[Rfam]
RNA sequence: UUUUUAUACAGAGGCGCGGAGAGACAGGCUCGAUGAACCGCCGGCAACCCCCAGCCAUUUGCUGGAACGGUGCCAACCGAAGGCCAAGAAACCUUACUCCUGGCUAUAUAAAAA
Numbered sequence: 001u002u003u004u005u006a007u008a009c010a011g012a013g014g015c016g017c018g019g020a021g022a023g024a025c026a027g028g029c030u031c032g033a034u035g036a037a038c039c040g041c042c043g044g045c046a047a048c049c050c051c052c053a054g055c056c057a058u059u060u061g062c063u064g065g066a067a068c069g070g071u072g073c074c075a076a077c078c079g080a081a082g083g084c085c086a087a088g089a090a091a092c093c094u095u096a097c098u099c100c101u102g103g104c105u106a107u108a109u110a111a112a113a114a
Stems, first nucleotide, its partner, number of pairs: 001114008013042004021031003025083001043074004048070002051065003084103003088099002

Rfam assigns this 114-nucleotide RNA sequence from Hymenobacter ginkgonis to the family "SAM riboswitch aptamer (S box leader)". The organism belongs to Hymenobacter, within Bacteria. It scores 65 bits against the family's covariance model.